[Rfam]
RNA sequence: AAUAAAUAUGGGAAUGAGGUUCUCCCAGGCCGCUGCUUUUUCCUUCGGCCAAACCGCUCAGGCUGAUGACUUCUGCAAUAUU
Numbered sequence: 001a002a003u004a005a006a007u008a009u010g011g012g013a014a015u016g017a018g019g020u021u022c023u024c025c026c027a028g029g030c031c032g033c034u035g036c037u038u039u040u041u042c043c044u045u046c047g048g049c050c051a052a053a054c055c056g057c058u059c060a061g062g063c064u065g066a067u068g069a070c071u072u073c074u075g076c077a078a079u080a081u082u
Stems, first nucleotide, its partner, number of pairs: 010026004016073006056063002
The record is an 82-nucleotide RNA sequence from Oscillospiraceae bacterium HV4-5-C5C, which matches "Fluoride riboswitch aptamer (crcB RNA motif)" in Rfam. NCBI's taxonomy places the organism under Bacteria, Bacillota, Clostridia, Eubacteriales, Oscillospiraceae.